This 103-nucleotide RNA from Brevibacterium linens belongs to the Rfam family "Actino-pnp RNA". Pairs were carried over by alignment from the consensus structure, which is taken from published work. It scores 51 bits against the family's covariance model. The organism belongs to Brevibacterium, within Bacteria.

Nucleotides: 103
Stems, first nucleotide, its partner, number of pairs: 002102006009095005017087005023081005
Number, partner (000 for none) and nucleotide at each position: 001000u002102u003101c004100g005099g006098u007097c008000u009095u010094c011093g012092g013091u014000a015000g016000u017087g018086g019085c020084c021083u022000c023081c024080g025079g026078a027077g028000g029000a030000u031000u032000g033000g034000g035000c036000g037000c038000u039000g040000a041000c042000a043000c044000c045000g046000g047000c048000u049000u050000g051000c052000a053000g054000a055000u056000g057000c058000a059000g060000g061000c062000g063000g064000u065000u066000g067000g068000c069000a070000g071000c072000a073000c074000c075000g076000g077027u078026u079025c080024c081023g082000u083021g084020g085019g086018c087017c088000c089000c090000g091013a092012u093011c094010g095009a096000u097007g098006a099005c100004c101003g102002g103000c